[Rfam]
RNA sequence: UUCUCGAAAUGGCAAACCUAUCGAAAGGUAGGGACGCAAAGCUACGGGCCUAAGGUUAAAAACUACGGUCGCCGGGUUCCCGAA
Numbered sequence: 001u002u003c004u005c006g007a008a009a010u011g012g013c014a015a016a017c018c019u020a021u022c023g024a025a026a027g028g029u030a031g032g033g034a035c036g037c038a039a040a041g042c043u044a045c046g047g048g049c050c051u052a053a054g055g056u057u058a059a060a061a062a063c064u065a066c067g068g069u070c071g072c073c074g075g076g077u078u079c080c081c082g083a084a
Stems, first nucleotide, its partner, number of pairs: 012037002017032006040078004045074003048069003055063003